[Rfam]
RNA: c-di-GMP-I riboswitch aptamer
RNA sequence: UAUAGAAAAUGCUUAACCCAUUGUAAAGUGGGGGCGGAAAAUCACGGGUCUUGCGCUGCAAGACAGCCAGAUUCCCUAU
Numbered sequence: 001u002a003u004a005g006a007a008a009a010u011g012c013u014u015a016a017c018c019c020a021u022u023g024u025a026a027a028g029u030g031g032g033g034g035c036g037g038a039a040a041a042u043c044a045c046g047g048g049u050c051u052u053g054c055g056c057u058g059c060a061a062g063a064c065a066g067c068c069a070g071a072u073u074c075c076c077u078a079u
Base pairs, nucleotide, nucleotide: 012037013036017032018031019030020029021028022027040073041072042071043070046068047067048064049063050062051061052060053059054058